[Rfam]
RNA sequence: AGGAUGUGAGUAUUACAUCAGGUACUGGUUAUUUUUGACUACCGGUCCCUGUGUAACACUAGCAUUUU
Numbered sequence: 001a002g003g004a005u006g007u008g009a010g011u012a013u014u015a016c017a018u019c020a021g022g023u024a025c026u027g028g029u030u031a032u033u034u035u036u037g038a039c040u041a042c043c044g045g046u047c048c049c050u051g052u053g054u055a056a057c058a059c060u061a062g063c064a065u066u067u068u
Stems, first nucleotide, its partner, number of pairs: 001068006009060003015054004021049002024046006